[Rfam]
RNA sequence: GUAGAUGCUCAUUCCACUUCUUAUGAUAGCAAUGCUUCAUAAACCAAGGAAUGACGCAAGCCGAUUACUGGUGCCUAUUGUCCAAUUUAGAUGAACAAGAGCUAAUCCUCUUCUCAUCAACCCAUGGACGUAACGUUGAGUGAGGCACCAUCUGUCUGUAGACCUGAUUGUAUAUUUACACACCUGCUAGUAUUGGCAGGUGUUUUUUU
Numbered sequence: 001g002u003a004g005a006u007g008c009u010c011a012u013u014c015c016a017c018u019u020c021u022u023a024u025g026a027u028a029g030c031a032a033u034g035c036u037u038c039a040u041a042a043a044c045c046a047a048g049g050a051a052u053g054a055c056g057c058a059a060g061c062c063g064a065u066u067a068c069u070g071g072u073g074c075c076u077a078u079u080g081u082c083c084a085a086u087u088u089a090g091a092u093g094a095a096c097a098a099g100a101g102c103u104a105a106u107c108c109u110c111u112u113c114u115c116a117u118c119a120a121c122c123c124a125u126g127g128a129c130g131u132a133a134c135g136u137u138g139a140g141u142g143a144g145g146c147a148c149c150a151u152c153u154g155u156c157u158g159u160a161g162a163c164c165u166g167a168u169u170g171u172a173u174a175u176u177u178a179c180a181c182a183c184c185u186g187c188u189a190g191u192a193u194u195g196g197c198a199g200g201u202g203u204u205u206u207u208u209u
Base pairs, nucleotide, nucleotide: 001061002060006058007057008056009054010053011052012051015049017048019041027034070149071148072147073146074145075144076143080129081128082127083126084125090118091117092116093115154163155162156161180203181202182201183200184199185198186197187196188195189194
Dot-bracket structure: ((...(((((((..(.(.(.......(......)......)......)).)))).))).))........(((((((...(((((.....((((.....................))))......))))).............)))))))....(((....)))................((((((((((....))))))))))......
GlmZ RNA activator of glmS mRNA: a 209-nucleotide sequence from Providencia stuartii. NCBI's taxonomy places the organism under Bacteria, Pseudomonadati, Pseudomonadota, Enterobacterales, Providencia. A reference for the family is Argaman et al. (2001), "Novel small RNA-encoding genes in the intergenic regions of Escherichia coli", Curr Biol. By type it is a small RNA. The match comes from Rfam's covariance-model search (139 bits). This RNA was discovered in E. coli during a large scale screen. The sraJ gene was expressed in early logarithmic phase, but its level decreased with cell growth. Specific cleavage products of this RNA were found. Identified in Yersinia pseudotuberculosis as Ysr248/153/sR016.